RNA: SAM riboswitch aptamer (S box leader)
Organism: Streptomyces rubellomurinus
RNA sequence: GAAUCAUCCAGAGGGGUGGAGGGACCGGCCCGACGAAGCCCCGGCAACUCCCCGUUCGACUCGGCGCGCGACGUGCGCGCCGCGGCGUCCGGGAUCAGUGCCAACUCCGGCCUGUCGCCAACGUGGCGCGGGAAAGAUGAGGA
Numbered sequence: 001g002a003a004u005c006a007u008c009c010a011g012a013g014g015g016g017u018g019g020a021g022g023g024a025c026c027g028g029c030c031c032g033a034c035g036a037a038g039c040c041c042c043g044g045c046a047a048c049u050c051c052c053c054g055u056u057c058g059a060c061u062c063g064g065c066g067c068g069c070g071a072c073g074u075g076c077g078c079g080c081c082g083c084g085g086c087g088u089c090c091g092g093g094a095u096c097a098g099u100g101c102c103a104a105c106u107c108c109g110g111c112c113u114g115u116c117g118c119c120a121a122c123g124u125g126g127c128g129c130g131g132g133a134a135a136g137a138u139g140a141g142g143a
Stems, first nucleotide, its partner, number of pairs: 004140005013042005021031003025110004043102004048098002051093003106135001111132005